[Rfam]
RNA sequence: GGAUCGGGAGCAGACCGGUGGGACGGUCGGCGGGAAUGGACCGAAAAACCCCUUGUUUCAAGGGUGUAUCACCGUGACCCCGGCGGUUUGAUGCG
Numbered sequence: 001g002g003a004u005c006g007g008g009a010g011c012a013g014a015c016c017g018g019u020g021g022g023a024c025g026g027u028c029g030g031c032g033g034g035a036a037u038g039g040a041c042c043g044a045a046a047a048a049c050c051c052c053u054u055g056u057u058u059c060a061a062g063g064g065u066g067u068a069u070c071a072c073c074g075u076g077a078c079c080c081c082g083g084c085g086g087u088u089u090g091a092u093g094c095g
Base pairs, nucleotide, nucleotide: 002042004040005039010031011030013028014027015026016025017024065095066094067093068092069091071087072086073085074084
Rhodo-rpoB RNA: a 95-nucleotide RNA from Rhodobacteraceae bacterium R_SAG10.
Lineage of the source: Bacteria > Pseudomonadati > Alphaproteobacteria > Rhodobacterales > Paracoccaceae.
The family's consensus secondary structure is taken from published work.